Shown here is a 186-nucleotide RNA sequence from an Acidobacteriota bacterium, a member of the family "6S / SsrS RNA". A search with the family's covariance model found it, with a score of 77 bits. The family's RNA type in Rfam is non-coding RNA gene. NCBI's taxonomy places the organism under Bacteria, Pseudomonadati, Acidobacteriota.
RNA sequence: AGUUCCCUGCUUUGCGCGUGAUGGUUCCGGUGGCUCGUCUUGAGCCAAUGUUCCAUCCAAGUGAAUCGCGACGCCGCGCUGUGUGCACGCCUCUGCACGAGGAAGCCUGACGCGCGGCUUGAGCAGCGGUUCCACCUGCUUAGCGCAGGUUCAAACGAGCACCCCACACGGCAAAGCGGGGCCCUU
Numbered sequence: 001a002g003u004u005c006c007c008u009g010c011u012u013u014g015c016g017c018g019u020g021a022u023g024g025u026u027c028c029g030g031u032g033g034c035u036c037g038u039c040u041u042g043a044g045c046c047a048a049u050g051u052u053c054c055a056u057c058c059a060a061g062u063g064a065a066u067c068g069c070g071a072c073g074c075c076g077c078g079c080u081g082u083g084u085g086c087a088c089g090c091c092u093c094u095g096c097a098c099g100a101g102g103a104a105g106c107c108u109g110a111c112g113c114g115c116g117g118c119u120u121g122a123g124c125a126g127c128g129g130u131u132c133c134a135c136c137u138g139c140u141u142a143g144c145g146c147a148g149g150u151u152c153a154a155a156c157g158a159g160c161a162c163c164c165c166a167c168a169c170g171g172c173a174a175a176g177c178g179g180g181g182c183c184c185u186u
Stems, first nucleotide, its partner, number of pairs: 002184001005181011017170003036157003041153006061133001063132002066129004073118007085106002090102004